A member of the RNA family "glmS glucosamine-6-phosphate activated ribozyme aptamer" from Staphylococcus sp. HGB0015, 215 nucleotides long. The source organism's lineage runs through Bacteria, Bacillati, Bacillota, Staphylococcaceae and Staphylococcus. Pairs were carried over by alignment from the consensus structure, which is taken from published work.

[Rfam]
RNA sequence: AUAGUUUAUAAAGCGCCAGCGCAAAUUGAAAGCAUGUAUUGUCGACCGAUAUGCUAAAGCAGAGCAUCUCAUAGAUACAUGUAGGAGAUUUGUGGACGAGGAGGAUAGUGAUCGAAUAUGAUCGGCGGAUGCUAUCCCGGAUGUGGCUCAUUCGUUAGCUUAUUAAUUAAAUCAUUAGGGUAACCUAUUGGACAAAGUUAGUAAGAUCGCCAAAC
Numbered sequence: 001a002u003a004g005u006u007u008a009u010a011a012a013g014c015g016c017c018a019g020c021g022c023a024a025a026u027u028g029a030a031a032g033c034a035u036g037u038a039u040u041g042u043c044g045a046c047c048g049a050u051a052u053g054c055u056a057a058a059g060c061a062g063a064g065c066a067u068c069u070c071a072u073a074g075a076u077a078c079a080u081g082u083a084g085g086a087g088a089u090u091u092g093u094g095g096a097c098g099a100g101g102a103g104g105a106u107a108g109u110g111a112u113c114g115a116a117u118a119u120g121a122u123c124g125g126c127g128g129a130u131g132c133u134a135u136c137c138c139g140g141a142u143g144u145g146g147c148u149c150a151u152u153c154g155u156u157a158g159c160u161u162a163u164u165a166a167u168u169a170a171a172u173c174a175u176u177a178g179g180g181u182a183a184c185c186u187a188u189u190g191g192a193c194a195a196a197g198u199u200a201g202u203a204a205g206a207u208c209g210c211c212a213a214a215c
Base pairs, nucleotide, nucleotide: 020094021093022092023091024090025089026088027087103137104136105135106134107133112125113124114123115122138154139153140152141151142150143149159205160204161203162202163201164200165199173190174189176187177186178185179184